[Rfam]
Histone 3' UTR stem-loop: a 46-nucleotide sequence from Gadus morhua. The family has 50 seed sequences and 44,596 matches in Rfam 15.1. A reference for the family is Williams and Marzluff (1995), "The sequence of the stem and flanking sequences at the 3' end of histone mRNA are critical determinants for the binding of the stem-loop binding protein", Nucleic Acids Res. Lineage of the source: Eukaryota > Neopterygii > Acanthomorphata > Gadoidei > Gadus.
RNA sequence: CAAAAGGCUCUUUUAAGAGCCACCUACUUCUUCACUAAGCAGCAGU
Dot-bracket structure: .....((((((....)))))).........................
Numbered sequence: 001c002a003a004a005a006g007g008c009u010c011u012u013u014u015a016a017g018a019g020c021c022a023c024c025u026a027c028u029u030c031u032u033c034a035c036u037a038a039g040c041a042g043c044a045g046u
Stems, first nucleotide, its partner, number of pairs: 006021006